RNA sequence: CCUCGAUAAUAGCAAAUUCAUUGAAAGAUGAAGACGCAAAGCCACGGGCCUAAAGUUUAUGUAUAAACCAUGGUAGCCGGGCUACCGAA
Numbered sequence: 001c002c003u004c005g006a007u008a009a010u011a012g013c014a015a016a017u018u019c020a021u022u023g024a025a026a027g028a029u030g031a032a033g034a035c036g037c038a039a040a041g042c043c044a045c046g047g048g049c050c051u052a053a054a055g056u057u058u059a060u061g062u063a064u065a066a067a068c069c070a071u072g073g074u075a076g077c078c079g080g081g082c083u084a085c086c087g088a089a
Stems, first nucleotide, its partner, number of pairs: 012037002017032006040083004045079003048074003055068004